RNA sequence: GUUUGUCUUCGGGGCAGGGUGUAAUUCCCGACCGGCGGUAAUAGUCCGUGACCUAUCUCUGAUAGUUGAUUUGGUGUAAUUCCAAAACCGACAGUAUAGUCUGGUAUAAAGAAGAUUUUA
Numbered sequence: 001g002u003u004u005g006u007c008u009u010c011g012g013g014g015c016a017g018g019g020u021g022u023a024a025u026u027c028c029c030g031a032c033c034g035g036c037g038g039u040a041a042u043a044g045u046c047c048g049u050g051a052c053c054u055a056u057c058u059c060u061g062a063u064a065g066u067u068g069a070u071u072u073g074g075u076g077u078a079a080u081u082c083c084a085a086a087a088c089c090g091a092c093a094g095u096a097u098a099g100u101c102u103g104g105u106a107u108a109a110a111g112a113a114g115a116u117u118u119u120a
Stems, first nucleotide, its partner, number of pairs: 005116006017029003031100002033090002035049004044088002053065002070086005092103003
Notes: FMN riboswitch aptamer (RFN element): a 120-nucleotide sequence from Apilactobacillus ozensis. Rfam links the family to the GO term FMN binding. A search with the family's covariance model found it, with a score of 106 bits. The source organism's lineage runs through Bacteria, Bacillati, Lactobacillales, Lactobacillaceae and Apilactobacillus ozensis. The base pairs follow the family's consensus structure, which is taken from published work.